RNA sequence: UGAGCUUCGCAGGAUUUAUUUAUUUUUCCUAUGAAUGUUGCUAUUGUUUUUCUGUAGGGUUGAAAAGUGCGAAGCUAGAAAAUAGGCUCCCCUCGCUAUCCAGUACAGAUACUUCUUACUCUGCAUUGGACGUUGGGGAGCUACAUUG
Numbered sequence: 001u002g003a004g005c006u007u008c009g010c011a012g013g014a015u016u017u018a019u020u021u022a023u024u025u026u027u028c029c030u031a032u033g034a035a036u037g038u039u040g041c042u043a044u045u046g047u048u049u050u051u052c053u054g055u056a057g058g059g060u061u062g063a064a065a066a067g068u069g070c071g072a073a074g075c076u077a078g079a080a081a082a083u084a085g086g087c088u089c090c091c092c093u094c095g096c097u098a099u100c101c102a103g104u105a106c107a108g109a110u111a112c113u114u115c116u117u118a119c120u121c122u123g124c125a126u127u128g129g130a131c132g133u134u135g136g137g138g139a140g141c142u143a144c145a146u147u148g
Stems, first nucleotide, its partner, number of pairs: 001079001003076003008071004016063001018061001027059006035050001037048001086141007094132002099130005108121002

The family of this 148-nucleotide sequence from Dendrobium catenatum is "Small nucleolar RNA snoR136". The organism belongs to Dendrobium, within Eukaryota. A search with the family's covariance model found it, with a score of 65 bits. Pairs were carried over by alignment from the consensus structure, which was predicted with mfold. A reference for the family is Chen and Wu (2009), "Mining small RNA sequencing data: a new approach to identify small nucleolar RNAs in Arabidopsis", Nucleic Acids Res. The family's RNA type in Rfam is H/ACA-box small nucleolar RNA.